RNA sequence: UCUCUUUGAUAAGCACUUGGGCAGCAGGAGUUUUAUUUAAAAAGUACCAUCUCCUGCGGCACUAGUACUUAGAAAAGUGA
Number, nucleotide and partner (000 for none) at each position: 001u080002c079003u000004c077005u076006u075007u074008g000009a000010u071011a070012a069013g068014c000015a066016c065017u064018u000019g062020g000021g000022c000023a000024g057025c056026a055027g054028g053029a052030g051031u000032u000033u000034u000035a000036u000037u000038u000039a000040a000041a000042a000043a000044g000045u000046a000047c000048c000049a000050u000051c030052u029053c028054c027055u026056g025057c024058g000059g000060c000061a000062c019063u000064a017065g016066u015067a000068c013069u012070u011071a010072g000073a000074a007075a006076a005077g004078u000079g002080a001
The family of this 80-nucleotide sequence from Lucilia cuprina is "mir-252 microRNA precursor family". It scores 51 bits against the family's covariance model. A reference for the family is Ruby et al. (2006), "Large-scale sequencing reveals 21U-RNAs and additional microRNAs and endogenous siRNAs in C. elegans", Cell.